A member of the RNA family "mir-202 microRNA precursor family" from Phyllostomus discolor, 76 nucleotides long. Pairs were carried over by alignment from the consensus structure, which was predicted with RNAalifold.

RNA sequence: UGGUUCCUUUUUCCUAUGCAUACACUUCUUCGAAGGUCUGGCUUGAAGAGGUGCAGAGCAUGGGAAAAUGGGGUGA
Numbered sequence: 001u002g003g004u005u006c007c008u009u010u011u012u013c014c015u016a017u018g019c020a021u022a023c024a025c026u027u028c029u030u031c032g033a034a035g036g037u038c039u040g041g042c043u044u045g046a047a048g049a050g051g052u053g054c055a056g057a058g059c060a061u062g063g064g065a066a067a068a069u070g071g072g073g074u075g076a
Stems, first nucleotide, its partner, number of pairs: 010067010021055001023053001025051008

Rfam links the family to the GO terms RISC complex and miRNA-mediated post-transcriptional gene silencing. The family has 23 seed sequences and 673 matches in Rfam 15.1.